[Rfam]
Small nucleolar RNA SNORA72: a 131-nucleotide sequence from Orycteropus afer.
A reference for the family is Ganot et al. (1997), "The family of box ACA small nucleolar RNAs is defined by an evolutionarily conserved secondary structure and ubiquitous sequence elements essential for RNA accumulation", Genes Dev.
The organism belongs to Orycteropus afer, within Eukaryota.
Gene Ontology terms of the family: nucleolus and RNA processing.
The family's RNA type in Rfam is H/ACA-box small nucleolar RNA.
Pairs were carried over by alignment from the consensus structure, which was predicted with PFOLD.
Rfam's curators write: U72 is a member of the H/ACA class of snoRNAs.
RNA sequence: CCGUGAAUAUUGUCCCCGUUCUGAUUUUGUGAUAAUGGGGACAGGCUAAGCAUUCACUCUAUGAAGACCAUGAAUGUGUCUCCAGACCUAGCUCUUUCCCUAAGUUUGGCUUUAUGGUGCUGGGUAUACAC
Number, nucleotide and partner (000 for none) at each position: 001c000002c000003g057004u056005g055006a000007a000008u000009a000010u000011u000012g000013u000014c000015c000016c044017c000018g042019u041020u040021c039022u038023g000024a036025u035026u034027u000028u000029g000030u000031g000032a000033u000034a026035a025036u024037g000038g022039g021040g020041a019042c018043a000044g016045g000046c000047u000048a000049a000050g000051c000052a000053u000054u000055c005056a004057c003058u000059c000060u000061a000062u000063g000064a000065a000066g000067a000068c123069c122070a121071u000072g120073a000074a000075u000076g000077u000078g000079u000080c000081u000082c109083c108084a107085g106086a105087c104088c000089u102090a101091g100092c000093u000094c000095u000096u000097u000098c000099c000100c091101u090102a089103a000104g087105u086106u085107u084108g083109g082110c000111u000112u000113u000114a000115u000116g000117g000118u000119g000120c072121u070122g069123g068124g000125u000126a000127u000128a000129c000130a000131c000